[Rfam]
RNA sequence: GGAUAUGAGAGCUAUUUGGCUUCGACAUCUGCCACCCCAUUGAUCACCAGGGUUUAUUCAGCUGAUCUCACUGGUGAGGUGGGUGUCCCCUUCCUCCUUUACCUUUCCACAUGCAUCCCUCCCAAAGUUUCGAGCUUGGUUGAACAGGACAACCUUCCCCAAUAGAGACAUGCCAUUCUUCAGUCAAGGGUAUACGAGUAGCUGCCCUCCCCUGCUAGAACAAGCUCCCAAGGUCCAUUUGUAGGAAAACACAGGAUAAUCAAGCUUCCAAAACUCCAGACACAUGCAAAUGAGGUUCUGCACAUGGCAGUCUGCCUUCCUUU
Numbered sequence: 001g002g003a004u005a006u007g008a009g010a011g012c013u014a015u016u017u018g019g020c021u022u023c024g025a026c027a028u029c030u031g032c033c034a035c036c037c038c039a040u041u042g043a044u045c046a047c048c049a050g051g052g053u054u055u056a057u058u059c060a061g062c063u064g065a066u067c068u069c070a071c072u073g074g075u076g077a078g079g080u081g082g083g084u085g086u087c088c089c090c091u092u093c094c095u096c097c098u099u100u101a102c103c104u105u106u107c108c109a110c111a112u113g114c115a116u117c118c119c120u121c122c123c124a125a126a127g128u129u130u131c132g133a134g135c136u137u138g139g140u141u142g143a144a145c146a147g148g149a150c151a152a153c154c155u156u157c158c159c160c161a162a163u164a165g166a167g168a169c170a171u172g173c174c175a176u177u178c179u180u181c182a183g184u185c186a187a188g189g190g191u192a193u194a195c196g197a198g199u200a201g202c203u204g205c206c207c208u209c210c211c212c213u214g215c216u217a218g219a220a221c222a223a224g225c226u227c228c229c230a231a232g233g234u235c236c237a238u239u240u241g242u243a244g245g246a247a248a249a250c251a252c253a254g255g256a257u258a259a260u261c262a263a264g265c266u267u268c269c270a271a272a273a274c275u276c277c278a279g280a281c282a283c284a285u286g287c288a289a290a291u292g293a294g295g296u297u298c299u300g301c302a303c304a305u306g307g308c309a310g311u312c313u314g315c316c317u318u319c320c321u322u323u
Base pairs, nucleotide, nucleotide: 001108002107003106006101007100008099009098011096014092018090019089024087025086026085027084028083029082030081031080032079033078035074036073039068042067043066044065045064047061119167120166121165122139123138124137125136127135128134140162141161142160147158148157149156201265202264203263208258211255212254213253214252220242221241222240223239224238288323289322290321292318293317294316295315296314298310299309300308301307